[Rfam]
RNA sequence: AGGAACAACGGCAGUGGGGGCGCCAGCUCUGGAGCCCUGGAGUCUGCCCCCGCAGUAACUCCGGGGCUCUCCGUCUGCAGGGCCUAGAGGCUCCCGGGCGGG
Number, nucleotide and partner (000 for none) at each position: 001a000002g094003g093004a092005a000006c090007a000008a000009c000010g085011g084012c082013a000014g000015u000016g075017g074018g000019g072020g071021c000022g069023c000024c000025a068026g067027c066028u065029c064030u063031g062032g061033a060034g000035c000036c000037c055038u054039g053040g000041a000042g000043u000044c000045u000046g000047c000048c000049c000050c000051c000052g000053c039054a038055g037056u000057a000058a000059c000060u033061c032062c031063g030064g029065g028066g027067c026068u025069c022070u000071c020072c019073g000074u017075c016076u000077g000078c000079a000080g000081g000082g012083c000084c011085u010086a000087g000088a000089g000090g006091c000092u004093c003094c002095c000096g000097g000098g000099c000100g000101g000102g000

Annotation: Rfam assigns this 102-nucleotide RNA from Vulpes vulpes to the family "mir-8834 microRNA precursor family". The family has 2 seed sequences and 13,926 matches in Rfam 15.1. Rfam links the family to the GO terms miRNA-mediated post-transcriptional gene silencing and RISC complex.